RNA sequence: GGGAGUAGGCGCAGGCGGUUGCAGAUCAGUCAGAGUGACUGGUUUGAGGAAAGUCCGGACUCCCGAAAGACCAAACUUGCUGGGUAACGCCCAGUGCGAGCGAUCGUGAGGAUAGUGCCACAGAAAGAUACCGCCAUCUUCAGUGAACAGUGAACAGUGAACAGUGAACAGUCAAAACCUGAUAACUGAUAACUGAUAACUGAAAAUGGUAAGGGUGCAAAGGUGCGGUAAGAGCGCACCAGCAGCGUCGAGAGGCGCUGGCUCGGUAAACCCCGGUAGGGAGCAAGGCCAGAGGAAACUACGGUUGGUCUUUUACCAGUUUCCGUGCAUUAGAGCCGCUAGAGGCGUUUGGUAACAAGCGUCCCAGAUAGAUAACUGCCCUCAAAGGUGUUUUUAAACAUUGGCGAGAACAGAACCCGGCUUAUGUCCGACUCUCUCCC
Numbered sequence: 001g002g003g004a005g006u007a008g009g010c011g012c013a014g015g016c017g018g019u020u021g022c023a024g025a026u027c028a029g030u031c032a033g034a035g036u037g038a039c040u041g042g043u044u045u046g047a048g049g050a051a052a053g054u055c056c057g058g059a060c061u062c063c064c065g066a067a068a069g070a071c072c073a074a075a076c077u078u079g080c081u082g083g084g085u086a087a088c089g090c091c092c093a094g095u096g097c098g099a100g101c102g103a104u105c106g107u108g109a110g111g112a113u114a115g116u117g118c119c120a121c122a123g124a125a126a127g128a129u130a131c132c133g134c135c136a137u138c139u140u141c142a143g144u145g146a147a148c149a150g151u152g153a154a155c156a157g158u159g160a161a162c163a164g165u166g167a168a169c170a171g172u173c174a175a176a177a178c179c180u181g182a183u184a185a186c187u188g189a190u191a192a193c194u195g196a197u198a199a200c201u202g203a204a205a206a207u208g209g210u211a212a213g214g215g216u217g218c219a220a221a222g223g224u225g226c227g228g229u230a231a232g233a234g235c236g237c238a239c240c241a242g243c244a245g246c247g248u249c250g251a252g253a254g255g256c257g258c259u260g261g262c263u264c265g266g267u268a269a270a271c272c273c274c275g276g277u278a279g280g281g282a283g284c285a286a287g288g289c290c291a292g293a294g295g296a297a298a299c300u301a302c303g304g305u306u307g308g309u310c311u312u313u314u315a316c317c318a319g320u321u322u323c324c325g326u327g328c329a330u331u332a333g334a335g336c337c338g339c340u341a342g343a344g345g346c347g348u349u350u351g352g353u354a355a356c357a358a359g360c361g362u363c364c365c366a367g368a369u370a371g372a373u374a375a376c377u378g379c380c381c382u383c384a385a386a387g388g389u390g391u392u393u394u395u396a397a398a399c400a401u402u403g404g405c406g407a408g409a410a411c412a413g414a415a416c417c418c419g420g421c422u423u424a425u426g427u428c429c430g431a432c433u434c435u436c437u438c439c440c
Stems, first nucleotide, its partner, number of pairs: 001436006008429002011425001014380007022046009051423003055420004060283004069312002075277002078275002080094005095109001096107004110273002115271002117267003131214002133210005139204006222240006242262001243260007287337003290333001294324006303317003307313001344363008
RNA: Bacterial RNase P class A